The record is a 37-nucleotide RNA sequence from Porphyromonas levii, which matches "abiF RNA" in Rfam.
The family's consensus secondary structure is taken from published work.
The family's RNA type in Rfam is small RNA.
Taxonomically the source falls in Porphyromonas (Bacteria, Pseudomonadati, Bacteroidota, Bacteroidia).

RNA sequence: CCUGCCAAGCCUCUCACUGACGCUCAAAUUGGCAGGU
Numbered sequence: 001c002c003u004g005c006c007a008a009g010c011c012u013c014u015c016a017c018u019g020a021c022g023c024u025c026a027a028a029u030u031g032g033c034a035g036g037u
Base pairs, nucleotide, nucleotide: 001036002035003034004033005032006031008024009023010022